[Rfam]
RNA sequence: AUGACAGCAUGGGGAGAGAACGCGGAAAGCGACGCCGAAGGAGCAAACAACAGUGAAUCUCUCAGGCAAAAAGACUCAUGCAGGACG
Dot-bracket structure: ......(((((((.......(((.....)))..(((((..(((...((....))....))))).))).......)))))))......

This 87-nucleotide RNA from Sporolactobacillus putidus belongs to the Rfam family "Glycine riboswitch aptamer". Pairs were carried over by alignment from the consensus structure. A search with the family's covariance model found it, with a score of 67 bits.